[Rfam]
RNA: U7 small nuclear RNA
Organism: Rhinopithecus bieti
RNA sequence: CAGUGUUAUAGCUCUUUUAGAAUUUGUCUAGCAGGCUUUCCAGUAAAGACUGGAAAGCCCUG
Numbered sequence: 001c002a003g004u005g006u007u008a009u010a011g012c013u014c015u016u017u018u019a020g021a022a023u024u025u026g027u028c029u030a031g032c033a034g035g036c037u038u039u040c041c042a043g044u045a046a047a048g049a050c051u052g053g054a055a056a057g058c059c060c061u062g
Base pairs, nucleotide, nucleotide: 034059035058036057037056038055039054040053041052042051043050044049